Overview: Rfam assigns this 123-nucleotide sequence from Microtus ochrogaster to the family "Small nucleolar RNA SNORA40". The match comes from Rfam's covariance-model search (86 bits). Taxonomically the source falls in Microtus (Eukaryota, Mammalia, Euarchontoglires, Glires). The snoRNA ACA 40 belongs to the H/ACA family of snoRNAs and guides the pseudouridylation of 28S rRNA subunit at position U4565. Rfam 15.1 lists 2,550 matches to the family in 517 species.
[Rfam]
RNA sequence: CUUAUGUGUGGUUUUUGCUGAAUUGGUGAACAAAGACUUAAAGACACGUAUAUAAAAAUAAAUCCUCCUUUGCAACCCAGAACUCAUUAAGUAUGAGUUUUGAUACAUAUCAGAAGGGAUGUG
Number, nucleotide and partner (000 for none) at each position: 001c000002u052003u050004a049005u048006g047007u046008g045009u044010g000011g037012u036013u035014u034015u033016u032017g031018c000019u000020g000021a000022a000023u028024u000025g000026g000027u000028g023029a000030a000031c017032a016033a015034a014035g013036a012037c011038u000039u000040a000041a000042a000043g000044a009045c008046a007047c006048g005049u004050a003051u000052a002053u000054a000055a000056a000057a000058a000059u000060a000061a000062a120063u119064c118065c117066u116067c000068c000069u113070u112071u000072g110073c000074a000075a000076c000077c000078c102079a101080g100081a099082a098083c097084u096085c095086a094087u093088u000089a000090a000091g000092u000093a087094u086095g085096a084097g083098u082099u081100u080101u079102g078103a000104u000105a000106c000107a000108u000109a000110u072111c000112a070113g069114a000115a000116g066117g065118g064119a063120u062121g000122u000123g000